[Rfam]
RNA: Lysine riboswitch aptamer
RNA sequence: CGCUUAGAUAGAGGCGCGAGGUUCAUCAGUACCCUCCAGCAAGGACAGGCAGCCGCCGGUCGGGAAAGGGGACAUCGCCGAAGUGUUUCGAAGCUGCCUGGCUUCGGGAUGCUGGGCUGUCGGGAAAUACCCGCCGGACUGUCACAAAAACUUUGUGAAGCGCUAUCAAUGGC
Numbered sequence: 001c002g003c004u005u006a007g008a009u010a011g012a013g014g015c016g017c018g019a020g021g022u023u024c025a026u027c028a029g030u031a032c033c034c035u036c037c038a039g040c041a042a043g044g045a046c047a048g049g050c051a052g053c054c055g056c057c058g059g060u061c062g063g064g065a066a067a068g069g070g071g072a073c074a075u076c077g078c079c080g081a082a083g084u085g086u087u088u089c090g091a092a093g094c095u096g097c098c099u100g101g102c103u104u105c106g107g108g109a110u111g112c113u114g115g116g117c118u119g120u121c122g123g124g125a126a127a128u129a130c131c132c133g134c135c136g137g138a139c140u141g142u143c144a145c146a147a148a149a150a151c152u153u154u155g156u157g158a159a160g161c162g163c164u165a166u167c168a169a170u171g172g173c
Stems, first nucleotide, its partner, number of pairs: 007167005016078004021073004032063002036059002039056001082113012114140002117137003121133004142158007